[Rfam]
RNA sequence: AAAUAUCUCUGUUAGGUGAGGCUCCUAUACGGAUACAGGCUGCUGCCCGGAAACGUCGAGAGACGCCAAUGGGUAAACAAACAUUGCCGGAUUAAGGUUUUGUUUAAUGCAGUUGGCUUUUUGCCUAAGCCGUAUAGUGCCAAAACUCGAUGAGGGGGAGAGUGAU
Numbered sequence: 001a002a003a004u005a006u007c008u009c010u011g012u013u014a015g016g017u018g019a020g021g022c023u024c025c026u027a028u029a030c031g032g033a034u035a036c037a038g039g040c041u042g043c044u045g046c047c048c049g050g051a052a053a054c055g056u057c058g059a060g061a062g063a064c065g066c067c068a069a070u071g072g073g074u075a076a077a078c079a080a081a082c083a084u085u086g087c088c089g090g091a092u093u094a095a096g097g098u099u100u101u102g103u104u105u106a107a108u109g110c111a112g113u114u115g116g117c118u119u120u121u122u123g124c125c126u127a128a129g130c131c132g133u134a135u136a137g138u139g140c141c142a143a144a145a146c147u148c149g150a151u152g153a154g155g156g157g158g159a160g161a162g163u164g165a166u
Stems, first nucleotide, its partner, number of pairs: 006161005011151002013095001015147003020141003025137008039113005045074005054065004080104004086098003115125003